[Rfam]
RNA: Bacterial large subunit ribosomal RNA, nucleotides 1282 to 1594
Organism: Leptolyngbya ectocarpi
Nucleotides: 313
Base pairs, nucleotide, nucleotide: 006024007023008022009021010020011019025311026310027309028308033291034290035289036288039271040270044068045067046066047065048064049063053061054060075267076266077265078264080111081110085106086105087104089102091100092099093098115132116131117130118129119128135263136262137261138260139259140258141257142256143255147248148247152242153241154240155239160229161228162227163226166222172217173216174215175214178193179192180191195210196209197208198207199206200205277286278285293305294304295303
Number, partner (000 for none) and nucleotide at each position: 001000g002000a003000a004000a005000a006024u007023a008022g009021a010020u011019g012000u013000g014000a015000g016000a017000a018000u019011c020010a021009u022008c023007u024006a025311c026310c027309c028308c029000g030000a031000a032000a033291a034290c035289c036288u037000a038000a039271g040270g041000a042000u043000u044068c045067c046066u047065c048064c049063g050000g051000a052000a053061g054060g055000c056000u057000c058000g059000u060054c061053c062000g063049c064048g065047g066046a067045g068044g069000g070000u071000u072000a073000g074000u075267c076266g077265g078264g079000a080111c081110c082000u083000a084000a085106g086105g087104c088000g089102a090000g091100g092099c093098c094000g095000a096000a097000a098093g099092g100091c101000g102089u103000a104087g105086u106085c107000g108000a109000u110081g111080g112000a113000u114000a115132c116131c117130a118129g119128g120000u121000u122000a123000a124000u125000a126000u127000u128119c129118c130117u131116g132115g133000a134000c135263u136262u137261u138260a139259u140258u141257u142256g143255u144000g145000g146000a147248g148247c149000a150000u151000u152242a153241c154240a155239g156000g157000g158000a159000c160229g161228c162227a163226u164000g165000a166222c167000a168000a169000c170000u171000a172217g173216c174215u175214a176000c177000a178193c179192c180191c181000u182000a183000a184000a185000u186000g187000g188000a189000u190000u191180g192179g193178g194000a195210g196209a197208c198207c199206g200205c201000c202000a203000c204000g205200g206199c207198g208197g209196u210195u211000g212000c213000g214175u215174a216173g217172u218000g219000a220000a221000c222166g223000a224000u225000a226163g227162u228161g229160c230000c231000u232000a233000g234000a235000a236000a237000a238000g239155c240154u241153g242152u243000u244000a245000a246000u247148g248147u249000g250000c251000u252000g253000a254000a255143g256142c257141a258140g259139a260138u261137a262136g263135a264078c265077c266076c267075g268000u269000a270040c271039u272000g273000u274000a275000a276000a277286c278285c279000g280000a281000c282000a283000c284000a285278g286277g287000u288036g289035g290034g291033u292000g293305g294304g295303u296000u297000g298000a299000g300000u301000a302000u303295a304294c305293u306000a307000a308028g309027g310026g311025g312000c313000g